Guanidine-I riboswitch aptamer: a 102-nucleotide RNA sequence from Nitrosomonas sp. Nm166. This family represents a conserved RNA structure found upstream of the ykkC and yxkD genes in Bacillus subtilis and related genes in other bacteria. The base pairs follow the family's consensus structure.
RNA sequence: UGAUAGGGAAACUAGGGUUCCGAUUUCUAAGAGAAAUGCUGGUCCAAGAGUUUCCGGUCUCGUGAUAGCGAGGCUCCACGGAGGGAUAAAAGCCCGGGAGGU
Numbered sequence: 001u002g003a004u005a006g007g008g009a010a011a012c013u014a015g016g017g018u019u020c021c022g023a024u025u026u027c028u029a030a031g032a033g034a035a036a037u038g039c040u041g042g043u044c045c046a047a048g049a050g051u052u053u054c055c056g057g058u059c060u061c062g063u064g065a066u067a068g069c070g071a072g073g074c075u076c077c078a079c080g081g082a083g084g085g086a087u088a089a090a091a092g093c094c095c096g097g098g099a100g101g102u
Stems, first nucleotide, its partner, number of pairs: 007055006015045002020042002022039001023037006056075008077097001079100001083095003